RNA sequence: ACAGUCCAAAAGCCGCGAAGCUCGCACCGAACAGGACGCUUUGAUGCAUCUUUCCUCGCGAGCGGGCUAAGGUCUGAGUAUUUCCUCCGCGAUUGUCCCUAGCCUGGGACCGGCCGUCACCGGUCGAGAGACGAAUCAGCAAUUCGGGUUGGCCGAUUUCGUGUACUCCCGACGAACCUCGGAAGAGGAAGGGUCAAGAAUCUGGUCAUCGGCCCUUGGAAGUAUCGUCUCGAGGAUGUGAGAUGUCCGCGUCAUGUCCUCGUCUCUGGUCACCGUGGCGUGGUGCCCUCUGGGGCGCCGCGCGCGAGUAUUGACGAUGGCACGACGAUCACGGGUCCCACCGUGCCCCUCGAAUGACACGGUGACAGGGCGGGGCGGGCUUUUUCAGGCAGGGGUUGCCCCAGCUGGGGGCUCUGGCGCGUUUGGAUGUCUUCACUUCAGUGCACUUCGCGGCUCGCAGUUUCUGCGAAACUCGAUUCAGACUACUCUUGGACUGU
Numbered sequence: 001a002c003a004g005u006c007c008a009a010a011a012g013c014c015g016c017g018a019a020g021c022u023c024g025c026a027c028c029g030a031a032c033a034g035g036a037c038g039c040u041u042u043g044a045u046g047c048a049u050c051u052u053u054c055c056u057c058g059c060g061a062g063c064g065g066g067c068u069a070a071g072g073u074c075u076g077a078g079u080a081u082u083u084c085c086u087c088c089g090c091g092a093u094u095g096u097c098c099c100u101a102g103c104c105u106g107g108g109a110c111c112g113g114c115c116g117u118c119a120c121c122g123g124u125c126g127a128g129a130g131a132c133g134a135a136u137c138a139g140c141a142a143u144u145c146g147g148g149u150u151g152g153c154c155g156a157u158u159u160c161g162u163g164u165a166c167u168c169c170c171g172a173c174g175a176a177c178c179u180c181g182g183a184a185g186a187g188g189a190a191g192g193g194u195c196a197a198g199a200a201u202c203u204g205g206u207c208a209u210c211g212g213c214c215c216u217u218g219g220a221a222g223u224a225u226c227g228u229c230u231c232g233a234g235g236a237u238g239u240g241a242g243a244u245g246u247c248c249g250c251g252u253c254a255u256g257u258c259c260u261c262g263u264c265u266c267u268g269g270u271c272a273c274c275g276u277g278g279c280g281u282g283g284u285g286c287c288c289u290c291u292g293g294g295g296c297g298c299c300g301c302g303c304g305c306g307a308g309u310a311u312u313g314a315c316g317a318u319g320g321c322a323c324g325a326c327g328a329u330c331a332c333g334g335g336u337c338c339c340a341c342c343g344u345g346c347c348c349c350u351c352g353a354a355u356g357a358c359a360c361g362g363u364g365a366c367a368g369g370g371c372g373g374g375g376c377g378g379g380c381u382u383u384u385u386c387a388g389g390c391a392g393g394g395g396u397u398g399c400c401c402c403a404g405c406u407g408g409g410g411g412c413u414c415u416g417g418c419g420c421g422u423u424u425g426g427a428u429g430u431c432u433u434c435a436c437u438u439c440a441g442u443g444c445a446c447u448u449c450g451c452g453g454c455u456c457g458c459a460g461u462u463u464c465u466g467c468g469a470a471a472c473u474c475g476a477u478u479c480a481g482a483c484u485a486c487u488c489u490u491g492g493a494c495u496g497u
Stems, first nucleotide, its partner, number of pairs: 001497004007491003012454007020063005034051003038047002074481005084235004095110005111126006128231007146215003455469006

Background:
The record is a 497-nucleotide RNA sequence from Laetiporus sulphureus, which matches "Nuclear RNase P" in Rfam. NCBI's taxonomy places the organism under Eukaryota, Basidiomycota, Agaricomycetes, Laetiporus, Laetiporus sulphureus. The family is grouped with related families in Rfam's "RNaseP clan". About the family: Ribonuclease P (RNase P) is a ubiquitous endoribonuclease, found in archaea, bacteria and eukarya as well as chloroplasts and mitochondria. Its best characterised activity is the generation of mature 5'-ends of tRNAs by cleaving the 5'-leader elements of precursor-tRNAs. Cellular RNase Ps are ribonucleoproteins. RNA from bacterial RNase Ps retains its catalytic activity in the absence of the protein subunit, i.e. it is a ribozyme. The family has 116 seed sequences and 3,848 matches in Rfam 15.1.